RNA sequence: AAUGAAUGAUGACAAUUUGUUUCGGUCCCAGAUGAAACAAUGAUUACUAUUUUCAAAUUCUGACAUU
Dot-bracket structure: ((((...........................................................))))
RNA: Small nucleolar RNA SNORD73